[Rfam]
RNA sequence: GAGAGCAAGUAGAAGUUCCCGCUUCUCGCCUAAGUCAAAGACCUCUAGGCUAAUCGAUAAUAAUCUGUUGAUUAAAAAGUGGGUGCUUAUGCACCCACUUUUUACUUGUCCU
Numbered sequence: 001g002a003g004a005g006c007a008a009g010u011a012g013a014a015g016u017u018c019c020c021g022c023u024u025c026u027c028g029c030c031u032a033a034g035u036c037a038a039a040g041a042c043c044u045c046u047a048g049g050c051u052a053a054u055c056g057a058u059a060a061u062a063a064u065c066u067g068u069u070g071a072u073u074a075a076a077a078a079g080u081g082g083g084u085g086c087u088u089a090u091g092c093a094c095c096c097a098c099u100u101u102u103u104a105c106u107u108g109u110c111c112u
Stems, first nucleotide, its partner, number of pairs: 011026006028050003033044002035041002078099009
Source information
Rfam assigns this 112-nucleotide RNA sequence from Holzapfeliella floricola to the family "Ribosomal protein L20 leader". NCBI's taxonomy places the organism under Bacteria, Bacillati, Lactobacillaceae, Holzapfeliella, Holzapfeliella floricola. It scores 67 bits against the family's covariance model. It is annotated as a cis-regulatory leader. Gene Ontology term of the family: regulation of gene expression. A reference for the family is Zengel and Lindahl (1994), "Diverse mechanisms for regulating ribosomal protein synthesis in Escherichia coli", Prog Nucleic Acid Res Mol Biol.